The family of this 45-nucleotide RNA from Pontibacillus yanchengensis is "PreQ1 (pre queuosine) riboswitch aptamer". The pairing is the family consensus, mapped onto this sequence. Its family is annotated with queuosine biosynthetic process in the Gene Ontology. This family is a bacterial riboswitch that binds to the metabolite preQ1, an intermediate in the biosynthesis of the modified nucleoside queuosine from GTP. One example of this riboswitch is located in the leader of the Bacillus subtilis ykvJKLM (queCDEF) operon which encodes four genes necessary for queuosine production. PreQ1 binding to the riboswitch aptamer is thought to induce premature transcription termination within the leader to down-regulate expression of these genes. A reference for the family is Klein et al. (2009), "Cocrystal structure of a class I preQ1 riboswitch reveals a pseudoknot recognizing an essential hypermodified nucleobase", Nat Struct Mol Biol.
RNA sequence: ACGGGAGAGGUUCUAGCUCAACCCUCUAUAAAAAACUAAGGGACA
Numbered sequence: 001a002c003g004g005g006a007g008a009g010g011u012u013c014u015a016g017c018u019c020a021a022c023c024c025u026c027u028a029u030a031a032a033a034a035a036c037u038a039a040g041g042g043a044c045a
Stems, first nucleotide, its partner, number of pairs: 006027005016037001